The family of this 73-nucleotide RNA from Scyliorhinus torazame is "Small nucleolar RNA SNORD56". The literature on the family includes a 2002 paper in Mol Cell Biol by Galardi et al., "Purified box C/D snoRNPs are able to reproduce site-specific 2'-O-methylation of target RNA in vitro". Lineage of the source: Eukaryota > Bilateria > Vertebrata > Elasmobranchii > Scyliorhinus. Rfam 15.1 lists 796 matches to the family in 432 species.
[Rfam]
RNA sequence: CUGCAGUGAUGUUUCAGAUUUUUCGUCAACCGCAUUUCACCUCCGUGAAUGUUGACAGCUUUGUUCUGAGCGC
Numbered sequence: 001c002u003g004c005a006g007u008g009a010u011g012u013u014u015c016a017g018a019u020u021u022u023u024c025g026u027c028a029a030c031c032g033c034a035u036u037u038c039a040c041c042u043c044c045g046u047g048a049a050u051g052u053u054g055a056c057a058g059c060u061u062u063g064u065u066c067u068g069a070g071c072g073c
Base pairs, nucleotide, nucleotide: 002072003071004070008027009026010025011024